[Rfam]
RNA: sroC RNA
Organism: Enterobacteriaceae bacterium strain FGI 57
RNA sequence: ACUAAUUAUAACAACCAGGGCGGGACUACCUGCCCUCUCGAUUGUUGAAUAGCACGGACAGACUACAGGUCUGGCGGUCGUUCCCCGUCGGGCCCGAAUAUCGCAGUACGCCGUUCACCAAUCUUCGAGGGUAGCACUGCUACCCUUUUUUUUCUGGA
Numbered sequence: 001a002c003u004a005a006u007u008a009u010a011a012c013a014a015c016c017a018g019g020g021c022g023g024g025a026c027u028a029c030c031u032g033c034c035c036u037c038u039c040g041a042u043u044g045u046u047g048a049a050u051a052g053c054a055c056g057g058a059c060a061g062a063c064u065a066c067a068g069g070u071c072u073g074g075c076g077g078u079c080g081u082u083c084c085c086c087g088u089c090g091g092g093c094c095c096g097a098a099u100a101u102c103g104c105a106g107u108a109c110g111c112c113g114u115u116c117a118c119c120a121a122u123c124u125u126c127g128a129g130g131g132u133a134g135c136a137c138u139g140c141u142a143c144c145c146u147u148u149u150u151u152u153u154c155u156g157g158a
Stems, first nucleotide, its partner, number of pairs: 018035004022030002036130005041122004047116002055103003059096001061094001069093009